Description
Rfam assigns this 86-nucleotide sequence from Pseudoponticoccus marisrubri to the family "L2-Alphaproteobacteria ribosomal protein leader". By type it is a cis-regulatory leader. Pairs were carried over by alignment from the consensus structure, which is taken from published work.

RNA sequence: GGGCACCUACGGGGGCCUAUACCCCGGGCCGCAAGGCCCCAAACACCAGGCGGGGCAGCCCGCCUCGAGCUAACGGAAGACAGAAA
Numbered sequence: 001g002g003g004c005a006c007c008u009a010c011g012g013g014g015g016c017c018u019a020u021a022c023c024c025c026g027g028g029c030c031g032c033a034a035g036g037c038c039c040c041a042a043a044c045a046c047c048a049g050g051c052g053g054g055g056c057a058g059c060c061c062g063c064c065u066c067g068a069g070c071u072a073a074c075g076g077a078a079g080a081c082a083g084a085a086a
Base pairs, nucleotide, nucleotide: 001018002017003016004015006014007013008012026061027060028059029058031056032055